A member of the RNA family "mir-8/mir-141/mir-200 microRNA precursor family" from Python bivittatus, 68 nucleotides long. The match comes from Rfam's covariance-model search (66 bits).
RNA sequence: AUUCUCAUCUUACUGGGCAGCGUUGGACGUUUUAUGAGUUUCUAAUACUGCCUGGUAAAGAUGUUAAU
Numbered sequence: 001a002u003u004c005u006c007a008u009c010u011u012a013c014u015g016g017g018c019a020g021c022g023u024u025g026g027a028c029g030u031u032u033u034a035u036g037a038g039u040u041u042c043u044a045a046u047a048c049u050g051c052c053u054g055g056u057a058a059a060g061a062u063g064u065u066a067a068u
Stems, first nucleotide, its partner, number of pairs: 002067002006063004010058011022046006